[Rfam]
RNA sequence: UGAUAGCUAUGAAGCGUGAGGUUGCUGCUUUAUCCAGUUAAGCAGGUUUUCCGUGGAGCGAAUGUCUAGAGGCCGAACCAAGGCCAACCAAACUGACGACAA
Numbered sequence: 001u002g003a004u005a006g007c008u009a010u011g012a013a014g015c016g017u018g019a020g021g022u023u024g025c026u027g028c029u030u031u032a033u034c035c036a037g038u039u040a041a042g043c044a045g046g047u048u049u050u051c052c053g054u055g056g057a058g059c060g061a062a063u064g065u066c067u068a069g070a071g072g073c074c075g076a077a078c079c080a081a082g083g084c085c086a087a088c089c090a091a092a093c094u095g096a097c098g099a100c101a102a
Base pairs, nucleotide, nucleotide: 014054015053016052018051019050020049021048025045026044027043028042029041063101064100065099066098069097
A member of the RNA family "S10-Clostridia ribosomal protein leader" from Butyrivibrio hungatei, 102 nucleotides long. Pairs were carried over by alignment from the consensus structure, which is taken from published work. Taxonomically the source falls in Butyrivibrio (Bacteria, Bacillati, Bacillota, Clostridia). It scores 73 bits against the family's covariance model. It is annotated as a cis-regulatory leader. For this family Rfam cites "Discovery of 20 novel ribosomal leader candidates in bacteria and archaea" (Eckert and Weinberg, BMC Microbiol, 2020).